[Rfam]
The family of this 69-nucleotide sequence from Antarctobacter aquimaris is "L2-Alphaproteobacteria ribosomal protein leader". The family's consensus secondary structure is taken from published work. It scores 70 bits against the family's covariance model. The literature on the family includes a 2020 paper in BMC Microbiol by Eckert and Weinberg, "Discovery of 20 novel ribosomal leader candidates in bacteria and archaea". Lineage of the source: Bacteria > Pseudomonadati > Pseudomonadota > Alphaproteobacteria > Antarctobacter.
RNA sequence: GGCCACCUUCGGGGGGCUGAAACAUAACCCCGGAUCAAGUCCGGGGUGCUAGCUAACGGAAGACAGAAA
Numbered sequence: 001g002g003c004c005a006c007c008u009u010c011g012g013g014g015g016g017c018u019g020a021a022a023c024a025u026a027a028c029c030c031c032g033g034a035u036c037a038a039g040u041c042c043g044g045g046g047u048g049c050u051a052g053c054u055a056a057c058g059g060a061a062g063a064c065a066g067a068a069a
Base pairs, nucleotide, nucleotide: 001018002017003016004015006014007013008012027047028046029045030044031043032042033041